Background: The family of this 224-nucleotide part of an RNA from Colletotrichum gloeosporioides is "Eukaryotic large subunit ribosomal RNA". A search with the family's covariance model found it, with a score of 2085 bits. NCBI's taxonomy places the organism under Eukaryota, Ascomycota, leotiomyceta, Colletotrichum, Colletotrichum gloeosporioides species complex.
RNA sequence: GCUUAUAACUAAACUUACGUCUAGUGAAUCACUUAGCUCUCGCAGCUAGGGCACUUCGCUAACUUAGGCUAGCAUCAGCUUACUAUUAAGGAUAAAAGCUUUAGGAAUAUAGCUCUCUUUAGGGAGUGUUAUAGUCUGUUAUAUAAUACCUUUUAGCAGGCUGAGGUAUACGCUCUAUAAAGAUGCUAGCAUAAUAGUUAUCAGCAACCUAUCUUAAAAUAUAA
Numbered sequence: 001g002c003u004u005a006u007a008a009c010u011a012a013a014c015u016u017a018c019g020u021c022u023a024g025u026g027a028a029u030c031a032c033u034u035a036g037c038u039c040u041c042g043c044a045g046c047u048a049g050g051g052c053a054c055u056u057c058g059c060u061a062a063c064u065u066a067g068g069c070u071a072g073c074a075u076c077a078g079c080u081u082a083c084u085a086u087u088a089a090g091g092a093u094a095a096a097a098g099c100u101u102u103a104g105g106a107a108u109a110u111a112g113c114u115c116u117c118u119u120u121a122g123g124g125a126g127u128g129u130u131a132u133a134g135u136c137u138g139u140u141a142u143a144u145a146a147u148a149c150c151u152u153u154u155a156g157c158a159g160g161c162u163g164a165g166g167u168a169u170a171c172g173c174u175c176u177a178u179a180a181a182g183a184u185g186c187u188a189g190c191a192u193a194a195u196a197g198u199u200a201u202c203a204g205c206a207a208c209c210u211a212u213c214u215u216a217a218a219a220u221a222u223a224a
Base pairs, nucleotide, nucleotide: 001205002204003203005201006200007199008198009197010196011195016066017065019063020062070188071187072186073185074184075183076182210223211222212221